[Rfam]
RNA: Small nucleolar RNA SNORA38
RNA sequence: CCCACCUGCAAAGGUGUGUCCUAUCUUUGGACACGUAAGAAUUGGAGGCAAAGAAAUGCGGAACUGGAGAAGUCUGGGGCCAGCUUGCUCCCUGCAGGCUCAGGAUGAACCAUACAAGAGGG
Numbered sequence: 001c002c003c004a005c006c007u008g009c010a011a012a013g014g015u016g017u018g019u020c021c022u023a024u025c026u027u028u029g030g031a032c033a034c035g036u037a038a039g040a041a042u043u044g045g046a047g048g049c050a051a052a053g054a055a056a057u058g059c060g061g062a063a064c065u066g067g068a069g070a071a072g073u074c075u076g077g078g079g080c081c082a083g084c085u086u087g088c089u090c091c092c093u094g095c096a097g098g099c100u101c102a103g104g105a106u107g108a109a110c111c112a113u114a115c116a117a118g119a120g121g122g
Base pairs, nucleotide, nucleotide: 002048003047005045006044015035016034017033018032019031020030021029060115062113082100083099084098085097086096087095088094